[Rfam]
RNA sequence: UGCUUAUUAAGAAAGACUGAGGGAAUGGGCCCGAUGAAGUCUUGGCAACCAUUUCGAUAUAAUCGGAAAAGGUGCCAAAUCCCACUCUGAAAAAGAAGUUCAGAGAUAGAUAAGUG
Number, nucleotide and partner (000 for none) at each position: 001u116002g115003c114004u113005u112006a111007u110008u109009a000010a000011g000012a000013a043014a042015g041016a040017c039018u000019g000020a000021g032022g031023g030024a000025a000026u084027g083028g082029g081030c023031c022032c021033g000034a000035u000036g000037a000038a000039g017040u016041c015042u014043u013044g076045g075046c074047a073048a000049c072050c071051a000052u068053u067054u066055c065056g000057a000058u000059a000060u000061a000062a000063u000064c000065g055066g054067a053068a052069a000070a000071g050072g049073u047074g046075c045076c044077a000078a000079a000080u108081c029082c028083c027084a026085c105086u104087c103088u102089g101090a100091a000092a000093a000094a000095g000096a000097a000098g000099u000100u090101c089102a088103g087104a086105g085106a000107u000108a080109g008110a007111u006112a005113a004114g003115u002116g001